[Rfam]
RNA: ASpks TB sRNA
Organism: Streptomyces minutiscleroticus
RNA sequence: CUUGAUGGACCCCAGCCAGACCGGCCGGCCCUCCGGGCGGUCCUGCCCGUAGGCGGCGAUGACGGACUGGGCCUC
Numbered sequence: 001c002u003u004g005a006u007g008g009a010c011c012c013c014a015g016c017c018a019g020a021c022c023g024g025c026c027g028g029c030c031c032u033c034c035g036g037g038c039g040g041u042c043c044u045g046c047c048c049g050u051a052g053g054c055g056g057c058g059a060u061g062a063c064g065g066a067c068u069g070g071g072c073c074u075c
Base pairs, nucleotide, nucleotide: 015025016024017023031071032070033069038065044059047056048055049054